[Rfam]
RNA sequence: UUUGCAUUAAUGAAGGCUACACAGGAAAUCUUCAUGAGGAUUUGUGUGGAUCUGAUCUUUAGCAAA
Numbered sequence: 001u002u003u004g005c006a007u008u009a010a011u012g013a014a015g016g017c018u019a020c021a022c023a024g025g026a027a028a029u030c031u032u033c034a035u036g037a038g039g040a041u042u043u044g045u046g047u048g049g050a051u052c053u054g055a056u057c058u059u060u061a062g063c064a065a066a
Base pairs, nucleotide, nucleotide: 001066002065003064004063005062015052016051017049018048019047020046021045022044023043024042030039031038032037